[Rfam]
RNA sequence: GGCCAGGGGAAGAAAAAAUAUAGACUAAAACAUCUGGUAUGGGCAAGCAGGGAGCUAGAACGAUUCGCAGUUAAUCCCGGCC
Numbered sequence: 001g002g003c004c005a006g007g008g009g010a011a012g013a014a015a016a017a018a019u020a021u022a023g024a025c026u027a028a029a030a031c032a033u034c035u036g037g038u039a040u041g042g043g044c045a046a047g048c049a050g051g052g053a054g055c056u057a058g059a060a061c062g063a064u065u066c067g068c069a070g071u072u073a074a075u076c077c078c079g080g081c082c
Stems, first nucleotide, its partner, number of pairs: 001082004006077003
Shown here is an 82-nucleotide RNA from Lentivirus humimdef1, a member of the family "HIV gag stem loop 3 (GSL3)". The base pairs follow the family's consensus structure, which was predicted with PFOLD. Rfam describes the family as follows. This family consists of several HIV gag stem loop 3 (GSL3) sequences. The family's RNA type in Rfam is cis-regulatory element. Lineage of the source: Viruses > Riboviria > Pararnavirae > Retroviridae > Lentivirus humimdef1.